[Rfam]
RNA sequence: ACUCUAGCAUUGACUCCAAUCCACAUGUGUUGAGGUGGAUUGGGGUGUAAAUUAGUUUAAGUUACACCCCAAUACAUCUCAAUACAAGUGGAUUGGAGUUAAUACUAGA
Number, nucleotide and partner (000 for none) at each position: 001a000002c000003u000004c108005u107006a106007g105008c000009a103010u102011u101012g100013a099014c098015u000016c096017c095018a094019a093020u092021c091022c090023a089024c088025a000026u086027g085028u084029g083030u082031u081032g080033a000034g000035g077036u076037g075038g000039a073040u072041u071042g070043g069044g000045g067046u066047g065048u000049a000050a000051a000052u000053u000054a000055g000056u000057u000058u000059a000060a000061g000062u000063u000064a000065c047066a046067c045068c000069c043070c042071a041072a040073u039074a000075c037076a036077u035078c000079u000080c032081a031082a030083u029084a028085c027086a026087a000088g024089u023090g022091g021092a020093u019094u018095g017096g016097a000098g014099u013100u012101a011102a010103u009104a000105c007106u006107a005108g004109a000

Rfam assigns this 109-nucleotide RNA sequence from Zea mays to the family "MIR5565 microRNA precursor family". Pairs were carried over by alignment from the consensus structure, which was predicted with RNAalifold. NCBI's taxonomy places the organism under Eukaryota, Viridiplantae, Streptophyta, Poaceae, Zea.